[Rfam]
RNA sequence: UAAUAUCGCGCGCCCUUUUCUUGGCUUCCGGGGCGUCGGUAGCUGUCAAUUGGAGUUUUUCUGAAUGGCCCGUAUUGCAGGCGUCAACAUUCCAGAU
Numbered sequence: 001u002a003a004u005a006u007c008g009c010g011c012g013c014c015c016u017u018u019u020c021u022u023g024g025c026u027u028c029c030g031g032g033g034c035g036u037c038g039g040u041a042g043c044u045g046u047c048a049a050u051u052g053g054a055g056u057u058u059u060u061c062u063g064a065a066u067g068g069c070c071c072g073u074a075u076u077g078c079a080g081g082c083g084u085c086a087a088c089a090u091u092c093c094a095g096a097u
Stems, first nucleotide, its partner, number of pairs: 004041005010036005020081003023070002